A member of the RNA family "Purine riboswitch aptamer" from Bacillus safensis, 100 nucleotides long. Riboswitches are metabolite binding domains within certain messenger RNAs that serve as precision sensors for their corresponding targets.
RNA sequence: UAAUUUGAACACUAUAACACUCAUAUAAUCGCGUGAUGAUGGCACGCAAGUUUCUACCGGACACCGAUACGGUCCGACUAUGAGUGAGCAAAAUGAAACA
Numbered sequence: 001u002a003a004u005u006u007g008a009a010c011a012c013u014a015u016a017a018c019a020c021u022c023a024u025a026u027a028a029u030c031g032c033g034u035g036a037u038g039a040u041g042g043c044a045c046g047c048a049a050g051u052u053u054c055u056a057c058c059g060g061a062c063a064c065c066g067a068u069a070c071g072g073u074c075c076g077a078c079u080a081u082g083a084g085u086g087a088g089c090a091a092a093a094u095g096a097a098a099c100a
Stems, first nucleotide, its partner, number of pairs: 018086008029049001031047005058076005